[Rfam]
Nucleotides: 099
Base pairs, nucleotide, nucleotide: 003098005096024076025075026074027073
Number, partner (000 for none) and nucleotide at each position: 001000c002000c003098a004000g005096g006000u007000c008000c009000a010000g011000u012000g013000a014000u015000g016000a017000a018000a019000g020000a021000u022000u023000c024076c025075g026074g027073a028000u029000g030000u031000u032000a033000a034000g035000a036000a037000a038000c039000a040000a041000u042000g043000u044000u045000u046000c047000c048000g049000a050000g051000a052000g053000c054000g055000c056000a057000a058000a059000a060000c061000c062000g063000u064000g065000u066000g067000g068000a069000g070000a071000u072000u073027u074026c075025c076024g077000u078000u079000g080000c081000c082000u083000u084000c085000c086000u087000u088000c089000u090000g091000a092000g093000g094000a095000u096005c097000a098003u099000g